This 587-nucleotide RNA sequence belongs to the Rfam family "ROOL RNA". Firmicutes, Fusobacteria (1 example), Tenericutes (1 example). It is annotated as a small RNA. Rfam's curators put it in the seed alignment.
[Rfam]
RNA sequence: GGUAGCUUUAGAAAACAUGAUUAACUCAGUGCAGAUGGAUUUUUCAGUCUUGCUGAGAUGCAAUGGUAACGAGAUAGGCUCAUUCGGGAUACUGGAUCAGCUGAUUCUUUCUAACAGAAGCGAUUCUGUUGGCGAAGACGAACAUCGUCAACAAUGCCUUGCAGUGUAUCAUCAUAGAGAAGUCAAUAGCAGAAUCCUUGUGGUCGGCGAAUAAUAGACGCUUGCAGUGCAAGAAUAAUCCAUUUGGUUUGUGGUGUGAGAGACCACCAACAGCGAUGGAAAAUCUCAAUAAGCUGAUUUGCCUUGAACCUAAGAAAUUAGGGUAUAACACAAGAAAUUCGUUAAAGUAGCGGUAUGGCAAGUUCUUGAAUAAGCAAUUUCGAUAUAAGCAAUGAAAAGGGUGCAAAAUAGGCGAAAACAUAAUCUGAAAGAACCGUGAAAUUUACGGGUAUCAAUCCCGUGUGUGCUUUGACAGCGGUAAGAAGCCAAGGGUCGCACCCGAACGCUCAGACUUAUCGUCACACUGGCAGAAUAUGACUUUUACCGUGGUGAAUAAGAGGAAACUCUAAUCAUGUUUUUCUUAUUCU
Numbered sequence: 001g002g003u004a005g006c007u008u009u010a011g012a013a014a015a016c017a018u019g020a021u022u023a024a025c026u027c028a029g030u031g032c033a034g035a036u037g038g039a040u041u042u043u044u045c046a047g048u049c050u051u052g053c054u055g056a057g058a059u060g061c062a063a064u065g066g067u068a069a070c071g072a073g074a075u076a077g078g079c080u081c082a083u084u085c086g087g088g089a090u091a092c093u094g095g096a097u098c099a100g101c102u103g104a105u106u107c108u109u110u111c112u113a114a115c116a117g118a119a120g121c122g123a124u125u126c127u128g129u130u131g132g133c134g135a136a137g138a139c140g141a142a143c144a145u146c147g148u149c150a151a152c153a154a155u156g157c158c159u160u161g162c163a164g165u166g167u168a169u170c171a172u173c174a175u176a177g178a179g180a181a182g183u184c185a186a187u188a189g190c191a192g193a194a195u196c197c198u199u200g201u202g203g204u205c206g207g208c209g210a211a212u213a214a215u216a217g218a219c220g221c222u223u224g225c226a227g228u229g230c231a232a233g234a235a236u237a238a239u240c241c242a243u244u245u246g247g248u249u250u251g252u253g254g255u256g257u258g259a260g261a262g263a264c265c266a267c268c269a270a271c272a273g274c275g276a277u278g279g280a281a282a283a284u285c286u287c288a289a290u291a292a293g294c295u296g297a298u299u300u301g302c303c304u305u306g307a308a309c310c311u312a313a314g315a316a317a318u319u320a321g322g323g324u325a326u327a328a329c330a331c332a333a334g335a336a337a338u339u340c341g342u343u344a345a346a347g348u349a350g351c352g353g354u355a356u357g358g359c360a361a362g363u364u365c366u367u368g369a370a371u372a373a374g375c376a377a378u379u380u381c382g383a384u385a386u387a388a389g390c391a392a393u394g395a396a397a398a399g400g401g402u403g404c405a406a407a408a409u410a411g412g413c414g415a416a417a418a419c420a421u422a423a424u425c426u427g428a429a430a431g432a433a434c435c436g437u438g439a440a441a442u443u444u445a446c447g448g449g450u451a452u453c454a455a456u457c458c459c460g461u462g463u464g465u466g467c468u469u470u471g472a473c474a475g476c477g478g479u480a481a482g483a484a485g486c487c488a489a490g491g492g493u494c495g496c497a498c499c500c501g502a503a504c505g506c507u508c509a510g511a512c513u514u515a516u517c518g519u520c521a522c523a524c525u526g527g528c529a530g531a532a533u534a535u536g537a538c539u540u541u542u543a544c545c546g547u548g549g550u551g552a553a554u555a556a557g558a559g560g561a562a563a564c565u566c567u568a569a570u571c572a573u574g575u576u577u578u579u580c581u582u583a584u585u586c587u
Stems, first nucleotide, its partner, number of pairs: 008583001010581006022569001025057005037050005059163005072108003075104001077102001079100002082097006109134001111132009137149005169568001173549001177545001182539001188535001192340004197334006203298006221233004239280006247271003251267003257288004299361005309322005344442001350437005424511004448459002463523003475520001478517001481514002485507001490500003556567004